[Rfam]
RNA sequence: CAAAAGGGUUUCUGUCGUGAGUGACACAUGCAGGGGAGCCCGUUUGCUCUGUGUGUGAAACCGACAUGGAGAGAUUUCGGAAGCAGAAUUUUUGUUGUUUGGGCAGCUGGUAAUUGUUGGUCCCCAUGCCCUU
Numbered sequence: 001c002a003a004a005a006g007g008g009u010u011u012c013u014g015u016c017g018u019g020a021g022u023g024a025c026a027c028a029u030g031c032a033g034g035g036g037a038g039c040c041c042g043u044u045u046g047c048u049c050u051g052u053g054u055g056u057g058a059a060a061c062c063g064a065c066a067u068g069g070a071g072a073g074a075u076u077u078c079g080g081a082a083g084c085a086g087a088a089u090u091u092u093u094g095u096u097g098u099u100u101g102g103g104c105a106g107c108u109g110g111u112a113a114u115u116g117u118u119g120g121u122c123c124c125c126a127u128g129c130c131c132u133u
Base pairs, nucleotide, nucleotide: 008084009083010082011081012080013026014025015024016023017022027055028054029053030052031051032050033049034048035047037045038044056079057078058077059076060075062073101131102130103129104128106127109124110123113121114120115119

Description
The family of this 133-nucleotide RNA from Erinaceus europaeus is "U11 spliceosomal RNA". The family's consensus secondary structure is taken from published work. The source organism's lineage runs through Eukaryota, Deuterostomia, Tetrapoda, Amniota and Erinaceus. Rfam classes the family as a spliceosomal small nuclear RNA.